[Rfam]
RNA: Histone 3' UTR stem-loop
RNA sequence: CCAACGGUCCUUUUAAGGACCACCCAAAUCAUAUUUAAAGGGCAUU
Numbered sequence: 001c002c003a004a005c006g007g008u009c010c011u012u013u014u015a016a017g018g019a020c021c022a023c024c025c026a027a028a029u030c031a032u033a034u035u036u037a038a039a040g041g042g043c044a045u046u
Stems, first nucleotide, its partner, number of pairs: 006021006